U5 spliceosomal RNA: a 112-nucleotide RNA sequence from Cronartium quercuum.
A reference for the family is Zwieb (1997), "The uRNA database", Nucleic Acids Res.
About the family: U5 RNA is a component of both types of known spliceosome. The precise function of this molecule is unknown, though it is known that the 5' loop is required for splice site selection and p220 binding, and that both the 3' stem-loop and the Sm site are important for Sm protein binding and cap methylation.
The family's RNA type in Rfam is spliceosomal small nuclear RNA.
RNA sequence: UAUGGCGCGUUUGGCCUCAAACUCGAACGUCCCCCUCGCCUUUUACUAGGGAGACCCGGGGGUCAAGCACACAUGCCAUGUUAACAAUCUUUCACGCCACUUCUUGUGGUGC
Numbered sequence: 001u002a003u004g005g006c007g008c009g010u011u012u013g014g015c016c017u018c019a020a021a022c023u024c025g026a027a028c029g030u031c032c033c034c035c036u037c038g039c040c041u042u043u044u045a046c047u048a049g050g051g052a053g054a055c056c057c058g059g060g061g062g063u064c065a066a067g068c069a070c071a072c073a074u075g076c077c078a079u080g081u082u083a084a085c086a087a088u089c090u091u092u093c094a095c096g097c098c099a100c101u102u103c104u105u106g107u108g109g110u111g112c
Stems, first nucleotide, its partner, number of pairs: 003078004009068010029055003033051004098111004